[Rfam]
RNA: Small nucleolar RNA SNORA71
Organism: Electrophorus electricus
RNA sequence: CCCUGUAUCGAAUGGGACUGUGGCAUGUCUGGUUGCCAGGUCACUGACAAUGCAGGAAGAGAAAACUGAAAGUCUUUCCCGUGUUUGCUAGACAACCAUGUUCUUGACAAACCCUGUAUCUUUCAGACA
Numbered sequence: 001c002c003c004u005g006u007a008u009c010g011a012a013u014g015g016g017a018c019u020g021u022g023g024c025a026u027g028u029c030u031g032g033u034u035g036c037c038a039g040g041u042c043a044c045u046g047a048c049a050a051u052g053c054a055g056g057a058a059g060a061g062a063a064a065a066c067u068g069a070a071a072g073u074c075u076u077u078c079c080c081g082u083g084u085u086u087g088c089u090a091g092a093c094a095a096c097c098a099u100g101u102u103c104u105u106g107a108c109a110a111a112c113c114c115u116g117u118a119u120c121u122u123u124c125a126g127a128c129a
Stems, first nucleotide, its partner, number of pairs: 002056007014044001016042004022037004067125006083112005088106001090104003